[Rfam]
RNA sequence: CCGUGCUAGACGGGGAGGUAGCGGUGCCCUGUAACUCGCAAUCCGCUGUAGCGAGGUUGAAUUCCUGUUAGAGGUUUUGUCGAUGUGGGGUUUGGCGUUUACACUCGGUGUUGACGGCUGGGUCCUCCGCAAUGGGUGCCUAUGAACUUGGUCAGGUCCGGAAGGAAGCAGCCAUAAGUAGGAGAGCUCAUGUGCCGGAGGGAAGCCUGGCCUGAGUCGUAGUGUAGAAGUGCCGCUCGGAUCGCAAUUAUCAAUAACAGGUGCACGG
Number, nucleotide and partner (000 for none) at each position: 001c268002c267003g266004u265005g264006c263007u000008a000009g058010a057011c056012g030013g029014g028015g027016a000017g025018g000019u023020a000021g000022c000023g019024g000025u017026g000027c015028c014029c013030u012031g000032u000033a000034a000035c055036u054037c053038g052039c051040a000041a000042u000043c000044c000045g000046c000047u000048g000049u000050a000051g039052c038053g037054a036055g035056g011057u010058u009059g000060a000061a000062u000063u000064c261065c260066u259067g258068u257069u256070a255071g000072a000073g252074g251075u250076u000077u000078u000079g000080u000081c244082g243083a242084u241085g000086u239087g238088g237089g236090g000091u000092u000093u232094g231095g000096c000097g000098u228099u227100u226101a225102c224103a000104c000105u000106c222107g218108g217109u216110g000111u000112u000113g000114a000115c000116g212117g211118c210119u209120g208121g207122g206123u205124c201125c200126u199127c198128c197129g196130c192131a191132a000133u190134g189135g188136g187137u186138g000139c182140c181141u180142a179143u178144g000145a000146a000147c000148u000149u174150g173151g172152u171153c000154a000155g000156g000157u166158c165159c164160g000161g000162a000163a000164g159165g158166a157167a000168g000169c000170a000171g152172c151173c150174a149175u000176a000177a000178g143179u142180a141181g140182g139183a000184g000185a000186g137187c136188u135189c134190a133191u131192g130193u000194g000195c000196c129197g128198g127199a126200g125201g124202g000203a000204a000205g123206c122207c121208u120209g119210g118211c117212c116213u000214g000215a000216g109217u108218c107219g000220u000221a000222g106223u000224g102225u101226a100227g099228a098229a000230g000231u094232g093233c000234c000235g000236c089237u088238c087239g086240g000241a084242u083243c082244g081245c000246a000247a000248u000249u000250a075251u074252c073253a000254a000255u070256a069257a068258c067259a066260g065261g064262u000263g006264c005265a004266c003267g002268g001
Bacterial large signal recognition particle RNA: a 268-nucleotide RNA from Paenibacillus sp. KS1. The family's consensus secondary structure is taken from published work. It is annotated as a non-coding RNA gene. The match comes from Rfam's covariance-model search (199 bits).